[Rfam]
RNA sequence: ACCGAAUCGCAGGGGCAUCACGUAUAUCAGUGAGGAUUCGUCCGAGAUUACGUUUUUGCUAGUUGAAAACUACAACUAUGACCGCUCGCGCUUGCCUUCUGGUGAGUGCGGAAUUUUUGACAAACCUUUAC
Numbered sequence: 001a002c003c004g005a006a007u008c009g010c011a012g013g014g015g016c017a018u019c020a021c022g023u024a025u026a027u028c029a030g031u032g033a034g035g036a037u038u039c040g041u042c043c044g045a046g047a048u049u050a051c052g053u054u055u056u057u058g059c060u061a062g063u064u065g066a067a068a069a070c071u072a073c074a075a076c077u078a079u080g081a082c083c084g085c086u087c088g089c090g091c092u093u094g095c096c097u098u099c100u101g102g103u104g105a106g107u108g109c110g111g112a113a114u115u116u117u118u119g120a121c122a123a124a125c126c127u128u129u130a131c
Stems, first nucleotide, its partner, number of pairs: 020053005026048003034043003086111011
Dot-bracket structure: ...................(((((.(((.....(((....)))..))))))))................................(((((((((((....)))))))))))....................
RNA: U4 spliceosomal RNA